Rfam assigns this 67-nucleotide RNA sequence from Azoarcus sp. KH32C to the family "Betaproteobacteria toxic small RNA". From the family's description: Overexpression in amino aid rich medium attenuates growth, suggesting role in repressing amino acid intake and metabolism. NCBI's taxonomy places the organism under Bacteria, Pseudomonadati, Pseudomonadota, Rhodocyclales, Azoarcus.
RNA sequence: CGUCUCCUCCACCCUCCUCCUUUGGUGUGGAUUUAGCCCGAGCCGUCAAACGCUCGGGCUUUUCUUU
Numbered sequence: 001c002g003u004c005u006c007c008u009c010c011a012c013c014c015u016c017c018u019c020c021u022u023u024g025g026u027g028u029g030g031a032u033u034u035a036g037c038c039c040g041a042g043c044c045g046u047c048a049a050a051c052g053c054u055c056g057g058g059c060u061u062u063u064c065u066u067u
Base pairs, nucleotide, nucleotide: 008031009030010029011028012027013025014024035060036059037058038057039056040055041054042053